[Rfam]
RNA sequence: CAAAAGGACUUCUGUUAUGAGUGACACCUAUAGUGCAACUUGAUUGGUGUUUGUGUGGAAUCAUAAGAGAUUUUAGAAGCCUAAGUUUCUGAUACACAGGCAGCUGGGGAGUGUUGGUCUUGAUGUCCUA
Numbered sequence: 001c002a003a004a005a006g007g008a009c010u011u012c013u014g015u016u017a018u019g020a021g022u023g024a025c026a027c028c029u030a031u032a033g034u035g036c037a038a039c040u041u042g043a044u045u046g047g048u049g050u051u052u053g054u055g056u057g058g059a060a061u062c063a064u065a066a067g068a069g070a071u072u073u074u075a076g077a078a079g080c081c082u083a084a085g086u087u088u089c090u091g092a093u094a095c096a097c098a099g100g101c102a103g104c105u106g107g108g109g110a111g112u113g114u115u116g117g118u119c120u121u122g123a124u125g126u127c128c129u130a
Base pairs, nucleotide, nucleotide: 009079010078011077012076013026014025015024016023017022027055029053030052032050036046037045038044056075057074058073059072060071061070062069099127100126101125103124105122106121107120109119110118112116
Shown here is a 130-nucleotide RNA from Nannospalax galili, a member of the family "U11 spliceosomal RNA". By type it is a spliceosomal small nuclear RNA. For this family Rfam cites "Additional low-abundance human small nuclear ribonucleoproteins: U11, U12, etc" (Montzka and Steitz, Proc Natl Acad Sci U S A, 1988).